[Rfam]
RNA: Small nucleolar RNA SNORA14
Organism: Myripristis murdjan
RNA sequence: UGGCAUCCUUAUUAACCCCCCGGUUGCUAUUUUAUGUUAGUCUCUGGGAAAAUGAAGGGUGCAAAAUCAAGCUUAGAGACAUCCAAAGCUGAGGGACACGUGUCAGUUGCUCUUGGUUAUUUCAGCUCUAAGACAUGA
Numbered sequence: 001u002g003g004c005a006u007c008c009u010u011a012u013u014a015a016c017c018c019c020c021c022g023g024u025u026g027c028u029a030u031u032u033u034a035u036g037u038u039a040g041u042c043u044c045u046g047g048g049a050a051a052a053u054g055a056a057g058g059g060u061g062c063a064a065a066a067u068c069a070a071g072c073u074u075a076g077a078g079a080c081a082u083c084c085a086a087a088g089c090u091g092a093g094g095g096a097c098a099c100g101u102g103u104c105a106g107u108u109g110c111u112c113u114u115g116g117u118u119a120u121u122u123c124a125g126c127u128c129u130a131a132g133a134c135a136u137g138a
Base pairs, nucleotide, nucleotide: 003062004061005060006059009055010054011053012052019048020047021046022045023044026041027040067138068137072132073131074130075129076128077127087118088117089116090115091114092113093112095110099106